The record is a 96-nucleotide RNA, which matches "SAM-I/IV (S-adenosyl methionine) riboswitch aptamer" in Rfam. It is one of the family's seed sequences. The family's consensus secondary structure is taken from published work.

RNA sequence: AGCAAGCAUCUUGAGUGAGAUUAAAUUCUCCUCCAACCUGCCAACUCCGGCAAGGUGGAAAAGUGAUGCGGUUAACCAACAAUUAAAGGAGUAAAA
Number, nucleotide and partner (000 for none) at each position: 001a000002g000003c000004a000005a000006g069007c068008a067009u066010c065011u000012u000013g000014a000015g031016u000017g030018a029019g028020a027021u000022u000023a000024a000025a000026u000027u020028c019029u018030c017031c015032u059033c058034c057035a000036a000037c055038c054039u053040g051041c050042c049043a000044a092045c091046u090047c089048c088049g042050g041051c040052a000053a039054g038055g037056u000057g034058g033059a032060a000061a000062a000063g000064u000065g010066a009067u008068g007069c006070g000071g080072u079073u078074a000075a000076c000077c000078a073079a072080c071081a000082a000083u000084u000085a000086a000087a000088g048089g047090a046091g045092u044093a000094a000095a000096a000